[Rfam]
This 77-nucleotide RNA from Pleuronectes platessa belongs to the Rfam family "Small nucleolar RNA SNORD79". On this family, see Galardi et al., Mol Cell Biol 2002: "Purified box C/D snoRNPs are able to reproduce site-specific 2'-O-methylation of target RNA in vitro". Gene Ontology terms of the family: RNA processing and nucleolus. From the family's description: snoRNA U79 or Z22 is found in intron 7 of the gas5 gene in humans and is also present in mice. Clan: SNORD74 clan.
RNA sequence: AACUGUUAAUGAUGAUUUAUUAAACAUUGGGAAUCUCUCUGAUAAAGGGUGAAAGAGAACUGUUUUCUGAUGCAGUA
Numbered sequence: 001a002a003c004u005g006u007u008a009a010u011g012a013u014g015a016u017u018u019a020u021u022a023a024a025c026a027u028u029g030g031g032a033a034u035c036u037c038u039c040u041g042a043u044a045a046a047g048g049g050u051g052a053a054a055g056a057g058a059a060c061u062g063u064u065u066u067c068u069g070a071u072g073c074a075g076u077a
Base pairs, nucleotide, nucleotide: 002076003075004074005073006072